[Rfam]
RNA sequence: UGUCGAUGCCUUUCGGGGCAUUUCCUCCCUAGUCUUUGGCCGCGCUUCUUCAUUGCAGCGCGGCUCUUUUUAUGAAAG
Numbered sequence: 001u002g003u004c005g006a007u008g009c010c011u012u013u014c015g016g017g018g019c020a021u022u023u024c025c026u027c028c029c030u031a032g033u034c035u036u037u038g039g040c041c042g043c044g045c046u047u048c049u050u051c052a053u054u055g056c057a058g059c060g061c062g063g064c065u066c067u068u069u070u071u072a073u074g075a076a077a078g
Stems, first nucleotide, its partner, number of pairs: 008019004040063007048055001
Rfam assigns this 78-nucleotide sequence from Brucella gallinifaecis to the family "Makes More Granules Regulator RNA (mmgR)".
It is annotated as a small RNA.
It scores 53 bits against the family's covariance model.
SuhB later renamed mmgR (makes more granules regulator) was a putative non-coding RNA found multiple times in the Agrobacterium tumefaciens genome and related alpha-proteobacteria. Other non-coding RNAs uncovered in the same analysis include: speF, ybhL, metA, and serC.Several studies inSinorhizobium meliloti showed that suhB element is indeed a non-coding RNA:firstly it was detected on Northern blot and called Sm8RNA, secondly in an RNAseq study referred to as SmelC689.The mutant phenotype's (strain lacking the small RNA) cytoplasm contains higher content of polyhydroxybutyrate (PBH)storage granules than wild type strain.
Taxonomically the source falls in Brucella (Bacteria, Pseudomonadati, Pseudomonadota, Hyphomicrobiales).